RNA sequence: UCGGCAUCAAUGAUGUUUAUAUCCUUUGUUAUCCUUGCACUUUGAUUGCCAUUGAAGAAAACUAUGGGGAAUGUCAAGUCUGAGAUGCUG
Numbered sequence: 001u002c003g004g005c006a007u008c009a010a011u012g013a014u015g016u017u018u019a020u021a022u023c024c025u026u027u028g029u030u031a032u033c034c035u036u037g038c039a040c041u042u043u044g045a046u047u048g049c050c051a052u053u054g055a056a057g058a059a060a061a062c063u064a065u066g067g068g069g070a071a072u073g074u075c076a077a078g079u080c081u082g083a084g085a086u087g088c089u090g
Stems, first nucleotide, its partner, number of pairs: 002090007
Overview: This 90-nucleotide RNA sequence from Thalictrum thalictroides belongs to the Rfam family "Small nucleolar RNA snoR26". Taxonomically the source falls in Thalictrum (Eukaryota, Tracheophyta, Magnoliopsida, Mesangiospermae). Pairs were carried over by alignment from the consensus structure, which was predicted with WAR.